[Rfam]
A member of the RNA family "Small nucleolar RNA snR60/Z15/Z230/Z193/J17" from Tolypocladium capitatum, 100 nucleotides long.
RNA sequence: UGAGGUUUUAUGAUGAUACACUUCCAAAUGCAUAGUUCAUCUGAUUUUGAUGAUGAAAACAUACCUUCAAGUCUUUCGCUCCCAUCUGACCCUAGCCUCU
Numbered sequence: 001u002g003a004g005g006u007u008u009u010a011u012g013a014u015g016a017u018a019c020a021c022u023u024c025c026a027a028a029u030g031c032a033u034a035g036u037u038c039a040u041c042u043g044a045u046u047u048u049g050a051u052g053a054u055g056a057a058a059a060c061a062u063a064c065c066u067u068c069a070a071g072u073c074u075u076u077c078g079c080u081c082c083c084a085u086c087u088g089a090c091c092c093u094a095g096c097c098u099c100u
Base pairs, nucleotide, nucleotide: 004097005096006095007094
Rfam 15.1 lists 3,592 matches to the family in 1,855 species. NCBI's taxonomy places the organism under Eukaryota, Dikarya, saccharomyceta, Hypocreales, Tolypocladium. The base pairs follow the family's consensus structure.